[Rfam]
RNA: Lysine riboswitch aptamer
RNA sequence: UGAAACUAUAGAGGAGCUUUUAAUAAGAGUAAGUAAUGGAGCUGGCAAGCAAUGAAAUUACCGAAAGGAUAUAAAAGCCGAAAUAUUAUGUGUGGCAACACAAGUAUUGGUAGAAAAGCAUAAAAGAUUUCUACUCUUUGGUGAACCAUUGGUGCUAUAGAUUUA
Numbered sequence: 001u002g003a004a005a006c007u008a009u010a011g012a013g014g015a016g017c018u019u020u021u022a023a024u025a026a027g028a029g030u031a032a033g034u035a036a037u038g039g040a041g042c043u044g045g046c047a048a049g050c051a052a053u054g055a056a057a058u059u060a061c062c063g064a065a066a067g068g069a070u071a072u073a074a075a076a077g078c079c080g081a082a083a084u085a086u087u088a089u090g091u092g093u094g095g096c097a098a099c100a101c102a103a104g105u106a107u108u109g110g111u112a113g114a115a116a117a118g119c120a121u122a123a124a125a126g127a128u129u130u131c132u133a134c135u136c137u138u139u140g141g142u143g144a145a146c147c148a149u150u151g152g153u154g155c156u157a158u159a160g161a162u163u164u165a
Base pairs, nucleotide, nucleotide: 006160007159008158009157010156011155016078017077018076019075020074021073023070024069033061034060035059036058037057082108083107084106085105086104089102090101091100092099093098109135110134111133112132113131114130115129117128119126